[Rfam]
RNA sequence: GGGCAGAUUCCUGAUGAAGGGCUCAUCAAGGGAGUCGACGUUUCAGGAUGAGCCCUUCAUCAGGAAUCUGCCCGA
Numbered sequence: 001g002g003g004c005a006g007a008u009u010c011c012u013g014a015u016g017a018a019g020g021g022c023u024c025a026u027c028a029a030g031g032g033a034g035u036c037g038a039c040g041u042u043u044c045a046g047g048a049u050g051a052g053c054c055c056u057u058c059a060u061c062a063g064g065a066a067u068c069u070g071c072c073c074g075a
Stems, first nucleotide, its partner, number of pairs: 001073011013061010026051003

This 75-nucleotide sequence from Chiloscyllium punctatum belongs to the Rfam family "mir-5697 microRNA precursor family". Lineage of the source: Eukaryota > Opisthokonta > Deuterostomia > Selachii > Chiloscyllium. The match comes from Rfam's covariance-model search (51 bits).